[Rfam]
RNA: ASpks TB sRNA
RNA sequence: CUUCAUGGAGCCGAUCAGCACGGGGCGGUCGGCGGGGCGCUGCUGCCCGUAGGUGGCCAGCAGGGCGUGCGCCUC
Numbered sequence: 001c002u003u004c005a006u007g008g009a010g011c012c013g014a015u016c017a018g019c020a021c022g023g024g025g026c027g028g029u030c031g032g033c034g035g036g037g038c039g040c041u042g043c044u045g046c047c048c049g050u051a052g053g054u055g056g057c058c059a060g061c062a063g064g065g066c067g068u069g070c071g072c073c074u075c
Stems, first nucleotide, its partner, number of pairs: 015025002032070002038065001043060003047056003